[Rfam]
This 184-nucleotide RNA from Synechococcus sp. CC9605 belongs to the Rfam family "6S / SsrS RNA". The source organism's lineage runs through Bacteria, Bacillati, Synechococcales, Synechococcaceae and Synechococcus. Rfam's curators put it in the seed alignment. Pairs were carried over by alignment from the consensus structure, which is taken from published work. E. coli 6S RNA was the first non coding RNA to be sequenced, but its function was unknown until recently. It consists of 184 nucleotides that fold into an extended hairpin structure with a large single-stranded internal bulge. The 6S RNA specifically associates with RNA polymerase holoenzyme containing the sigma70 specificity factor. This interaction represses expression from a sigma70-dependent promoter during stationary phase. 6S RNA homologs have recently been identified in most bacterial genomes. Many Gram-positive species have two copies of 6S RNA. In Bacillus subtilis, both copies appear to interact with RNA polymerase holoenzyme containing the housekeeping sigma factor and be expressed during different stages of growth. In many proteobacteria, 6S RNA may be processed from a transcript encoding homologs of the E. coli YgfA protein which is a putative 5-formyltetrahydrofolate cycloligase activity.

RNA sequence: AUUGAACUGCUGUGUUGGUGACGGCCUUUUUCUAGUGCUCUGAUCUGACUCUCUUUCGACUUGGGGAGACUGUCGUGACGGUGACGUAGACCGGCCAUGCAGCCGGAAACGAAACCCCACUUUGUCGCCCCUUCUGGUUCUUCCAGGUCGACCACUGGGGCUCGCACGGCAUGGCGGUUCACCU
Numbered sequence: 001a002u003u004g005a006a007c008u009g010c011u012g013u014g015u016u017g018g019u020g021a022c023g024g025c026c027u028u029u030u031u032c033u034a035g036u037g038c039u040c041u042g043a044u045c046u047g048a049c050u051c052u053c054u055u056u057c058g059a060c061u062u063g064g065g066g067a068g069a070c071u072g073u074c075g076u077g078a079c080g081g082u083g084a085c086g087u088a089g090a091c092c093g094g095c096c097a098u099g100c101a102g103c104c105g106g107a108a109a110c111g112a113a114a115c116c117c118c119a120c121u122u123u124g125u126c127g128c129c130c131c132u133u134c135u136g137g138u139u140c141u142u143c144c145a146g147g148u149c150g151a152c153c154a155c156u157g158g159g160g161c162u163c164g165c166a167c168g169g170c171a172u173g174g175c176g177g178u179u180c181a182c183c184u
Base pairs, nucleotide, nucleotide: 003181004180005179006178007177008176009175010174011173012172013171014170015169018167019166036154037153039151041150042149043148044147045146046145063131064130065129068126069125070124072122075120076119077118080116081115086110087109091106092105093104094103095102